[Rfam]
Shown here is a 188-nucleotide RNA, a member of the family "DUF2800 RNA". Pairs were carried over by alignment from the consensus structure, which is taken from published work.
RNA sequence: GUCCUGAGCAAGACGAAAAACUGCUCACCGCCAGACAUCGCAUCACUUGAUCAUUGAUGGCUCAACAGUAUCAGGUGGAACAAGUAAAUAAUGUAGUAGCUGCCUUUUGAGUGGGUUAGCUGCAAUCCGAAACGGAGAACUUCGUUUGGAAUGCGGUGCUUUUGUUAUGCCCAUUUUGCAGCUGACCA
Numbered sequence: 001g002u003c004c005u006g007a008g009c010a011a012g013a014c015g016a017a018a019a020a021c022u023g024c025u026c027a028c029c030g031c032c033a034g035a036c037a038u039c040g041c042a043u044c045a046c047u048u049g050a051u052c053a054u055u056g057a058u059g060g061c062u063c064a065a066c067a068g069u070a071u072c073a074g075g076u077g078g079a080a081c082a083a084g085u086a087a088a089u090a091a092u093g094u095a096g097u098a099g100c101u102g103c104c105u106u107u108u109g110a111g112u113g114g115g116u117u118a119g120c121u122g123c124a125a126u127c128c129g130a131a132a133c134g135g136a137g138a139a140c141u142u143c144g145u146u147u148g149g150a151a152u153g154c155g156g157u158g159c160u161u162u163u164g165u166u167a168u169g170c171c172c173a174u175u176u177u178g179c180a181g182c183u184g185a186c187c188a
Base pairs, nucleotide, nucleotide: 028078029077030076031075032074034072035071037069038068040066041059042058043057044056045055060112061111062110063109064108065107097184098183099182100181101180102179103178119157120156121155122154123153132145133144134143135142136141
Rfam's curators put it in the seed alignment.
By type it is a cis-regulatory element.